[Rfam]
Nucleotides: 092
Base pairs, nucleotide, nucleotide: 001087002086003085004084
Number, partner (000 for none) and nucleotide at each position: 001087c002086g003085g004084u005000g006000g007000u008000g009000a010000u011000g012000u013000c014000c015000a016000a017000a018000c019000u020000c021000a022000c023000g024000a025000u026000g027000g028000u029000c030000u031000g032000c033000a034000g035000a036000g037000c038000c039000c040000c041000g042000c043000g044000u045000g046000c047000c048000g049000a050000g051000g052000g053000g054000g055000g056000u057000g058000c059000u060000g061000a062000c063000a064000g065000c066000g067000c068000c069000a070000g071000u072000g073000g074000c075000g076000a077000u078000u079000g080000c081000u082000g083000a084004a085003c086002c087001g088000u089000g090000a091000g092000a